RNA sequence: AACGGGGAAGCCGAAAACCUGAUAGAGUAGGCA
Numbered sequence: 001a002a003c004g005g006g007g008a009a010g011c012c013g014a015a016a017a018c019c020u021g022a023u024a025g026a027g028u029a030g031g032c033a
Stems, first nucleotide, its partner, number of pairs: 004019002010032003
The record is a 33-nucleotide RNA sequence, which matches "DUF805b RNA" in Rfam.
Its Rfam clan is "DUF805 clan".
The sequence is in the family's curated seed alignment.
By type it is a cis-regulatory element.